[Rfam]
RNA sequence: GCGUGCCCGUGAUGAUUUGCGCAAAUGGUGAAUUCUGGAUGAAUGUGCAGAGCCAUGGUGAUAUGCACUUCCAAAGCGUUCGUCUGAGGCACGC
Number, nucleotide and partner (000 for none) at each position: 001g000002c093003g092004u091005g090006c089007c088008c000009g000010u000011g000012a000013u000014g000015a000016u000017u000018u000019g000020c000021g000022c000023a000024a000025a000026u000027g000028g000029u000030g000031a000032a000033u000034u000035c000036u000037g000038g000039a000040u000041g000042a000043a000044u000045g000046u000047g000048c000049a000050g000051a000052g000053c000054c000055a000056u000057g000058g000059u000060g000061a000062u000063a000064u000065g000066c000067a000068c000069u000070u000071c000072c000073a000074a000075a000076g000077c000078g000079u000080u000081c000082g000083u000084c000085u000086g000087a000088g007089g006090c005091a004092c003093g002094c000
Notes
The family of this 94-nucleotide RNA sequence from Digitaria exilis is "Small nucleolar RNA Z188". Rfam classes the family as a C/D-box small nucleolar RNA. It scores 51 bits against the family's covariance model. A reference for the family is Chen et al. (2003), "The high diversity of snoRNAs in plants: identification and comparative study of 120 snoRNA genes from Oryza sativa", Nucleic Acids Res. Rfam links the family to the GO terms RNA processing and nucleolus.